[Rfam]
RNA sequence: UAUGACGGUGAUGAGCCCUAACAGACCUGUAAAUGAUUCGUGCGGAUAUGAUUGUUCGAUUCAUUGAACAUCUAAGGGACGAGUUGUC
Number, nucleotide and partner (000 for none) at each position: 001u000002a087003u086004g085005a084006c083007g000008g000009u000010g000011a000012u000013g000014a000015g000016c000017c000018c000019u000020a000021a000022c000023a000024g000025a000026c000027c000028u000029g000030u000031a000032a000033a000034u000035g000036a000037u000038u000039c000040g000041u000042g000043c000044g000045g000046a000047u000048a000049u000050g000051a000052u000053u000054g000055u000056u000057c000058g000059a000060u000061u000062c000063a000064u000065u000066g000067a000068a000069c000070a000071u000072c000073u000074a000075a000076g000077g000078g000079a000080c000081g000082a000083g006084u005085u004086g003087u002088c000
RNA: Small nucleolar RNA SNORD25
Organism: Zizania palustris